[Rfam]
Annotation: Shown here is a 54-nucleotide RNA, a member of the family "Mu-gpT-DE RNA". Rfam classes the family as a small RNA.
RNA sequence: CCUUGACAGUCAUCUCAAGUGACUGACAUUUGCCAAGACAAGGAGAAUCACAUG
Number, nucleotide and partner (000 for none) at each position: 001c000002c042003u041004u040005g039006a000007c025008a024009g023010u022011c021012a000013u000014c000015u000016c000017a000018a000019g000020u000021g011022a010023c009024u008025g007026a000027c000028a000029u000030u000031u000032g000033c000034c000035a000036a000037g000038a000039c005040a004041a003042g002043g000044a000045g000046a000047a000048u000049c000050a000051c000052a000053u000054g000